RNA: skipping-rope RNA
RNA sequence: GGAAAUAGAAGUAGAAAAAUAUUGGGAACUACGCACCCUCAGGGUAUCUGAAAAGUGGGGAAGUCCCGUCCCACCUAUUCCU
Numbered sequence: 001g002g003a004a005a006u007a008g009a010a011g012u013a014g015a016a017a018a019a020u021a022u023u024g025g026g027a028a029c030u031a032c033g034c035a036c037c038c039u040c041a042g043g044g045u046a047u048c049u050g051a052a053a054a055g056u057g058g059g060g061a062a063g064u065c066c067c068g069u070c071c072c073a074c075c076u077a078u079u080c081c082u
Stems, first nucleotide, its partner, number of pairs: 001082002004079005011032004024066003034050001035045004055074005